[Rfam]
RNA: SmY spliceosomal RNA
Organism: Caenorhabditis brenneri
RNA sequence: GUGUAAUUCUAAUUACUCUCAGGGCCUUGAACAAGACCCAGUGAACAAUUUUUGGAGACUCUCAGGAAUAGGGUG
Numbered sequence: 001g002u003g004u005a006a007u008u009c010u011a012a013u014u015a016c017u018c019u020c021a022g023g024g025c026c027u028u029g030a031a032c033a034a035g036a037c038c039c040a041g042u043g044a045a046c047a048a049u050u051u052u053u054g055g056a057g058a059c060u061c062u063c064a065g066g067a068a069u070a071g072g073g074u075g
Stems, first nucleotide, its partner, number of pairs: 022039003026035003058074005